[Rfam]
U11 spliceosomal RNA: a 128-nucleotide RNA sequence from Corymbia citriodora. The family is grouped with related families in Rfam's "U1 clan". Its family is annotated with mRNA 5'-splice site recognition, pre-mRNA 5'-splice site binding and U11 snRNP in the Gene Ontology. Rfam 15.1 lists 2,595 matches to the family in 1,202 species. The family's consensus secondary structure is taken from published work. The source organism's lineage runs through Eukaryota, Streptophyta, Euphyllophyta, Myrtaceae and Corymbia citriodora.
RNA sequence: AAAAAGGGUCGGUUGGCUAAAUAUGCCACGCUCACCCUCGACUGGUGAGUGCUGUAUGGCUAUCAAGACAUAUGGCUGACAUAAUUUGUGGAAAUUCGUAGGGUUGGCUCGCUCAGCCGACCCUUCUA
Numbered sequence: 001a002a003a004a005a006g007g008g009u010c011g012g013u014u015g016g017c018u019a020a021a022u023a024u025g026c027c028a029c030g031c032u033c034a035c036c037c038u039c040g041a042c043u044g045g046u047g048a049g050u051g052c053u054g055u056a057u058g059g060c061u062a063u064c065a066a067g068a069c070a071u072a073u074g075g076c077u078g079a080c081a082u083a084a085u086u087u088g089u090g091g092a093a094a095u096u097c098g099u100a101g102g103g104u105u106g107g108c109u110c111g112c113u114c115a116g117c118c119g120a121c122c123c124u125u126c127u128a
Base pairs, nucleotide, nucleotide: 008080009079010078011077012076014028015027016026017025029051030050031049032048033047034046035045036044052075053074054073055072056071057070058069098126100124101123102122103121104120105119106118107117108116109115